[Rfam]
RNA sequence: GCCCCGAAGCGGGGGUACCGCGCCGAUCCAUGGCGCGGUUGAGACAGACCCAUCGAACCUGAUCCGGUUGAGACCGGCGUAGGGAAGCUUCGCAACACGCCCG
Numbered sequence: 001g002c003c004c005c006g007a008a009g010c011g012g013g014g015g016u017a018c019c020g021c022g023c024c025g026a027u028c029c030a031u032g033g034c035g036c037g038g039u040u041g042a043g044a045c046a047g048a049c050c051c052a053u054c055g056a057a058c059c060u061g062a063u064c065c066g067g068u069u070g071a072g073a074c075c076g077g078c079g080u081a082g083g084g085a086a087g088c089u090u091c092g093c094a095a096c097a098c099g100c101c102c103g
Stems, first nucleotide, its partner, number of pairs: 006091005012051003016046001017039009058083004064077004
RNA: TPP riboswitch aptamer (THI element)